[Rfam]
RNA sequence: AAUAUCAUUAAACCUAAGUUUUAAUAAAGCGCGGGGGAACCAAUAUAUUGGGGUGAAUCGUUUAUGUUCGUAGGCUAACCUUUGCCGAACCCGUCAGCUAACCCCGUCGGUAAAAGGAGAGGAUAU
Numbered sequence: 001a002a003u004a005u006c007a008u009u010a011a012a013c014c015u016a017a018g019u020u021u022u023a024a025u026a027a028a029g030c031g032c033g034g035g036g037g038a039a040c041c042a043a044u045a046u047a048u049u050g051g052g053g054u055g056a057a058u059c060g061u062u063u064a065u066g067u068u069c070g071u072a073g074g075c076u077a078a079c080c081u082u083u084g085c086c087g088a089a090c091c092c093g094u095c096a097g098c099u100a101a102c103c104c105c106g107u108c109g110g111u112a113a114a115a116g117g118a119g120a121g122g123a124u125a126u
Stems, first nucleotide, its partner, number of pairs: 012111003018030003031107006041050002051092003059070002073086003

This 126-nucleotide sequence from Clostridium tetanomorphum belongs to the Rfam family "c-di-AMP riboswitch aptamer (ydaO/yuaA leader)". The base pairs follow the family's consensus structure. The family has 106 seed sequences and 7,607 matches in Rfam 15.1. Its family is annotated with regulation of gene expression and cyclic-di-AMP binding in the Gene Ontology.